[Rfam]
RNA sequence: ACCACCUUCACGGUCUUUUGACGUGAAGCCUCCCUGUAUGACUUGCCGGGCCUUUGGCCCGGCAUUUUUU
Numbered sequence: 001a002c003c004a005c006c007u008u009c010a011c012g013g014u015c016u017u018u019u020g021a022c023g024u025g026a027a028g029c030c031u032c033c034c035u036g037u038a039u040g041a042c043u044u045g046c047c048g049g050g051c052c053u054u055u056g057g058c059c060c061g062g063c064a065u066u067u068u069u070u
Stems, first nucleotide, its partner, number of pairs: 008026005044064008
A member of the RNA family "Singlet oxygen resistance RNA X" from Zavarzinia compransoris, 70 nucleotides long. The base pairs follow the family's consensus structure. It is annotated as a small RNA. The organism belongs to Zavarzinia, within Bacteria. Gene Ontology term of the family: response to photooxidative stress. Rfam describes the family as follows. SorX (RSs2461)like SorY is a singlet oxygen induced sRNA that counteracts oxidative stress by targeting mRNA for a transporter in Rhodobacter. It also has an impact on resistance against organic hydroperoxides.